This 175-nucleotide sequence from Caldanaerobius fijiensis belongs to the Rfam family "Lysine riboswitch aptamer".
RNA sequence: CAGUGAAGUAGAGGCGCGAAAUACAUCAGUAAGCCACGGAGCCCGGGAAGCGAUGAACUGGCUGAAAGGGUAUUUCGCCGAAGCGCAAGAGAAGCCCAUCUCUUGUAGCUGGGCCUGUAUCGAAUAGGUACAGGACUGUCACCGGCACAACCGCCGGUGGAGAGCUAUCUCGCGC
Numbered sequence: 001c002a003g004u005g006a007a008g009u010a011g012a013g014g015c016g017c018g019a020a021a022u023a024c025a026u027c028a029g030u031a032a033g034c035c036a037c038g039g040a041g042c043c044c045g046g047g048a049a050g051c052g053a054u055g056a057a058c059u060g061g062c063u064g065a066a067a068g069g070g071u072a073u074u075u076c077g078c079c080g081a082a083g084c085g086c087a088a089g090a091g092a093a094g095c096c097c098a099u100c101u102c103u104u105g106u107a108g109c110u111g112g113g114c115c116u117g118u119a120u121c122g123a124a125u126a127g128g129u130a131c132a133g134g135a136c137u138g139u140c141a142c143c144g145g146c147a148c149a150a151c152c153g154c155c156g157g158u159g160g161a162g163a164g165c166u167a168u169c170u171c172g173c174g175c
Base pairs, nucleotide, nucleotide: 006170008168009167010166011165016078017077018076019075020074021073022072023071024070032063033062034061035060036059038058082110083109084108085106086105087104088103089102090101091100092099111137112136114134115133116132117131118130119129120128121127139160140159141158142157143156144155145154